[Rfam]
Record summary:
A member of the RNA family "mraW RNA" from Mycolicibacterium doricum, 101 nucleotides long. By type it is a cis-regulatory element.
RNA sequence: GCACGCCCCUGCAGCGAGGUCCCUGUCCGAGGCGGACCUGGCGUCGGGGAAGUACGCCAGGGCCGGUUCGGACAGAGGCCACGCUGCAAGGGCCGGUUCAA
Numbered sequence: 001g002c003a004c005g006c007c008c009c010u011g012c013a014g015c016g017a018g019g020u021c022c023c024u025g026u027c028c029g030a031g032g033c034g035g036a037c038c039u040g041g042c043g044u045c046g047g048g049g050a051a052g053u054a055c056g057c058c059a060g061g062g063c064c065g066g067u068u069c070g071g072a073c074a075g076a077g078g079c080c081a082c083g084c085u086g087c088a089a090g091g092g093c094c095g096g097u098u099c100a101a
Stems, first nucleotide, its partner, number of pairs: 010088007018080002021077001023075009033065003037061008